Shown here is a 360-nucleotide part of an RNA from Candidatus Micrarchaeum sp. AZ1, a member of the family "Archaeal small subunit ribosomal RNA". A search with the family's covariance model found it, with a score of 1334 bits. The base pairs follow the family's consensus structure, which is taken from published work. Its Rfam clan is "SSU clan".

RNA sequence: GGCUUAAAGCGCUCGUAGCCGGCUGAUGCCGUCUCGCGUGAAAUAUUGGCGCUCAACGUCAAUGCGUGCGCGAGAUACCCAUCGGCUAGGGAGCGGGUGAGGUCAGGAGUACUUAUGGGGGAGGGGUUAAAUCCUGUAAUCCUAUAAGGACUAACGGUGGCGAAGGCGCCUGACUAGAACGCAUCCGACGGUGAGGAGCGAAGGCUAGGAGAACGAAUCGGAUCAGAUACCCGAGUAGCCCUAGCAGUAAAUUAUGCAGACUCUGGUGUUGCAAGUAUCACGAAUGCUUGCAGUACCGUAGCGUAAGUGUUAAGUCUGCCGCCUGGGGAGUACGGCCGCAAGGUUGAAACUUAAAGCAAU
Numbered sequence: 001g002g003c004u005u006a007a008a009g010c011g012c013u014c015g016u017a018g019c020c021g022g023c024u025g026a027u028g029c030c031g032u033c034u035c036g037c038g039u040g041a042a043a044u045a046u047u048g049g050c051g052c053u054c055a056a057c058g059u060c061a062a063u064g065c066g067u068g069c070g071c072g073a074g075a076u077a078c079c080c081a082u083c084g085g086c087u088a089g090g091g092a093g094c095g096g097g098u099g100a101g102g103u104c105a106g107g108a109g110u111a112c113u114u115a116u117g118g119g120g121g122a123g124g125g126g127u128u129a130a131a132u133c134c135u136g137u138a139a140u141c142c143u144a145u146a147a148g149g150a151c152u153a154a155c156g157g158u159g160g161c162g163a164a165g166g167c168g169c170c171u172g173a174c175u176a177g178a179a180c181g182c183a184u185c186c187g188a189c190g191g192u193g194a195g196g197a198g199c200g201a202a203g204g205c206u207a208g209g210a211g212a213a214c215g216a217a218u219c220g221g222a223u224c225a226g227a228u229a230c231c232c233g234a235g236u237a238g239c240c241c242u243a244g245c246a247g248u249a250a251a252u253u254a255u256g257c258a259g260a261c262u263c264u265g266g267u268g269u270u271g272c273a274a275g276u277a278u279c280a281c282g283a284a285u286g287c288u289u290g291c292a293g294u295a296c297c298g299u300a301g302c303g304u305a306a307g308u309g310u311u312a313a314g315u316c317u318g319c320c321g322c323c324u325g326g327g328g329a330g331u332a333c334g335g336c337c338g339c340a341a342g343g344u345u346g347a348a349a350c351u352u353a354a355a356g357c358a359a360u
Stems, first nucleotide, its partner, number of pairs: 001323003009320001011199004016193001018192003022086007031078001032075009045063007090186003093182003098177001101175007108152002112148008123134003160167002204245006214238001218234004256319006265297014301308002325352003334345004